[Rfam]
RNA sequence: AACUAAACCCGAUAGCAGUGGAAAGCUUUUUGUUUUUAACUUAUCAUCCAGAGCGCAACCUGUACCGAUAUUUCGGUAGCGAAGGAUCUAUCGUAAGGCAUUGAAGAAAUAGAUCCCUCGUCCCUCGGAAUGACAGCACGAGGUUAAAACAAAAACUUGUAACGAUAGCGGGACUAUCG
Numbered sequence: 001a002a003c004u005a006a007a008c009c010c011g012a013u014a015g016c017a018g019u020g021g022a023a024a025g026c027u028u029u030u031u032g033u034u035u036u037u038a039a040c041u042u043a044u045c046a047u048c049c050a051g052a053g054c055g056c057a058a059c060c061u062g063u064a065c066c067g068a069u070a071u072u073u074c075g076g077u078a079g080c081g082a083a084g085g086a087u088c089u090a091u092c093g094u095a096a097g098g099c100a101u102u103g104a105a106g107a108a109a110u111a112g113a114u115c116c117c118u119c120g121u122c123c124c125u126c127g128g129a130a131u132g133a134c135a136g137c138a139c140g141a142g143g144u145u146a147a148a149a150c151a152a153a154a155a156c157u158u159g160u161a162a163c164g165a166u167a168g169c170g171g172g173a174c175u176a177u178c179g
Stems, first nucleotide, its partner, number of pairs: 009171003013167002018163002023158003029153008

Notes:
Flavo-1 RNA: a 179-nucleotide RNA sequence from Pedobacter chitinilyticus. The match comes from Rfam's covariance-model search (51 bits). Rfam classes the family as a small RNA.